[Rfam]
A member of the RNA family "EGFOA RNA" from Ornithinibacillus halophilus, 148 nucleotides long. Pairs were carried over by alignment from the consensus structure, which is taken from published work. A search with the family's covariance model found it, with a score of 51 bits. The family's RNA type in Rfam is small RNA. The organism belongs to Ornithinibacillus, within Bacteria.
RNA sequence: GACUUCCCAGAAGCUCCUUUAUGGAGGUUAAACCGUCCCAGUUGCCUUUGGCAAGGGUUUGUAUUGGUAGUUAGGAAUACAUAUUUAAUUCUAAUAUUGUAUUUACUAUGUGUUGUAAAGCUGGACCUGGGAACAAUAUACCAAUAUG
Numbered sequence: 001g002a003c004u005u006c007c008c009a010g011a012a013g014c015u016c017c018u019u020u021a022u023g024g025a026g027g028u029u030a031a032a033c034c035g036u037c038c039c040a041g042u043u044g045c046c047u048u049u050g051g052c053a054a055g056g057g058u059u060u061g062u063a064u065u066g067g068u069a070g071u072u073a074g075g076a077a078u079a080c081a082u083a084u085u086u087a088a089u090u091c092u093a094a095u096a097u098u099g100u101a102u103u104u105a106c107u108a109u110g111u112g113u114u115g116u117a118a119a120g121c122u123g124g125a126c127c128u129g130g131g132a133a134c135a136a137u138a139u140a141c142c143a144a145u146a147u148g
Stems, first nucleotide, its partner, number of pairs: 006131005035126002038124004042054005060148008072108003111135004